About this RNA
The record is a 96-nucleotide RNA sequence from Zingiber officinale, which matches "Plastid-rpl20 3UTR RNA" in Rfam.
[Rfam]
RNA sequence: ACAGAAUUCCCCGGAGUGACUUCUCCGGGAAGAUAGAAUAAAAAUCACUUAAAAAAUAAAAAAAUAAGUAAUAGGAAUGGACGAACAUGUUUAAAA
Numbered sequence: 001a002c003a004g005a006a007u008u009c010c011c012c013g014g015a016g017u018g019a020c021u022u023c024u025c026c027g028g029g030a031a032g033a034u035a036g037a038a039u040a041a042a043a044a045u046c047a048c049u050u051a052a053a054a055a056a057u058a059a060a061a062a063a064a065u066a067a068g069u070a071a072u073a074g075g076a077a078u079g080g081a082c083g084a085a086c087a088u089g090u091u092u093a094a095a096a
Stems, first nucleotide, its partner, number of pairs: 007031002010029007079092004
Dot-bracket structure: ......((.(((((((......)))))))))...............................................((((......))))....